[Rfam]
RNA sequence: GGUGCAGCGAGGAGUGGUAACUCCACCACCGUUGGCUUGUAAUUGAUUGCCAAUGGUUGAGGAGUUCCUCAACCUCGUAGCGUG
Numbered sequence: 001g002g003u004g005c006a007g008c009g010a011g012g013a014g015u016g017g018u019a020a021c022u023c024c025a026c027c028a029c030c031g032u033u034g035g036c037u038u039g040u041a042a043u044u045g046a047u048u049g050c051c052a053a054u055g056g057u058u059g060a061g062g063a064g065u066u067c068c069u070c071a072a073c074c075u076c077g078u079a080g081c082g083u084g
Stems, first nucleotide, its partner, number of pairs: 003082003007078006016069002019066005026059001029056008

mir-2765 microRNA precursor family: an 84-nucleotide sequence from Photinus pyralis. The family has 6 seed sequences and 109 matches in Rfam 15.1. The family's consensus secondary structure was predicted with RNAalifold. Its family is annotated with miRNA-mediated post-transcriptional gene silencing and RISC complex in the Gene Ontology. NCBI's taxonomy places the organism under Eukaryota, Arthropoda, Mandibulata, Lampyridae, Photinus.